[Rfam]
RNA sequence: CGCCCCGUCAUUGGGGAGUAGCCGCUCUUCACCGCGAAGAGGCUUGCGUCAACACACUUGGUCCAUCGGACCAUGGCGCAGGCAGCUCCUGGCCUGGCAAGACCUUUGACCACGAAGCCUCCGUUUUGGCCGGGGAUGCGUCGUGGUCAAUCGUCUCUGUACACCGGC
Numbered sequence: 001c002g003c004c005c006c007g008u009c010a011u012u013g014g015g016g017a018g019u020a021g022c023c024g025c026u027c028u029u030c031a032c033c034g035c036g037a038a039g040a041g042g043c044u045u046g047c048g049u050c051a052a053c054a055c056a057c058u059u060g061g062u063c064c065a066u067c068g069g070a071c072c073a074u075g076g077c078g079c080a081g082g083c084a085g086c087u088c089c090u091g092g093c094c095u096g097g098c099a100a101g102a103c104c105u106u107u108g109a110c111c112a113c114g115a116a117g118c119c120u121c122c123g124u125u126u127u128g129g130c131c132g133g134g135g136a137u138g139c140g141u142c143g144u145g146g147u148c149a150a151u152c153g154u155c156u157c158u159g160u161a162c163a164c165c166g167g168c
Base pairs, nucleotide, nucleotide: 026040027039028038042083043082044081045080046079047078048077049076050075051074059073060072061071062070063069
The record is a 168-nucleotide RNA from Hylemonella gracilis, which matches "Manganese Mn2+ riboswitch aptamer (yybP-ykoY)" in Rfam. It scores 94 bits against the family's covariance model. The source organism's lineage runs through Bacteria, Pseudomonadota, Burkholderiales, Comamonadaceae and Hylemonella gracilis. Rfam's curators write: This RNA was originally discovered in E. coli during a large scale screen and was named SraF. The family was later found to exist upstream of related families of protein genes in many bacteria, including the the yybP and ykoK genes in B. subtilis.